[Rfam]
RNA sequence: AAGACCUUUAAAUUAGUCCCGUGAGACUGAGAAGGAUUUCGGAUAAAAAAAGCACAAUACGUGUAUGGUUAUUAUCAGGCACAUAUGUGGUUUUAUCCUCUCUUGUCUCAACGGCAAGAGGGGAUUUUUUU
Numbered sequence: 001a002a003g004a005c006c007u008u009u010a011a012a013u014u015a016g017u018c019c020c021g022u023g024a025g026a027c028u029g030a031g032a033a034g035g036a037u038u039u040c041g042g043a044u045a046a047a048a049a050a051a052g053c054a055c056a057a058u059a060c061g062u063g064u065a066u067g068g069u070u071a072u073u074a075u076c077a078g079g080c081a082c083a084u085a086u087g088u089g090g091u092u093u094u095a096u097c098c099u100c101u102c103u104u105g106u107c108u109c110a111a112c113g114g115c116a117a118g119a120g121g122g123g124a125u126u127u128u129u130u131u
Stems, first nucleotide, its partner, number of pairs: 003037001005035005013030006058089007066081002069078002095125012
Notes
Rfam assigns this 131-nucleotide RNA from Pontibacillus yanchengensis to the family "PyrR binding site". The family has 41 seed sequences and 1,498 matches in Rfam 15.1. This family represents the PyrR binding site and terminator structure. The base pairs follow the family's consensus structure, which is taken from published work.